[Rfam]
Nucleotides: 073
Base pairs, nucleotide, nucleotide: 001073002072003071004070
Number, partner (000 for none) and nucleotide at each position: 001073u002072u003071g004070c005000u006000g007000u008000u009000a010000u011000g012000u013000u014000a015000c016000c017000c018000a019000c020000u021000u022000g023000g024000u025000u026000u027000c028000a029000c030000u031000g032000c033000u034000g035000a036000u037000g038000u039000g040000c041000a042000g043000u044000g045000g046000u047000g048000a049000c050000a051000g052000u053000u054000c055000u056000a057000c058000u059000u060000g061000g062000c063000u064000g065000u066000c067000u068000g069000a070004g071003c072002a073001g

Overview: A member of the RNA family "Small nucleolar RNA SNORD53/SNORD92" from Hemiprocne comata, 73 nucleotides long. The pairing is the family consensus, mapped onto this sequence. By type it is a C/D-box small nucleolar RNA. Taxonomically the source falls in Hemiprocne (Eukaryota, Teleostomi, Aves, Neoaves). Its family is annotated with nucleolus and RNA processing in the Gene Ontology.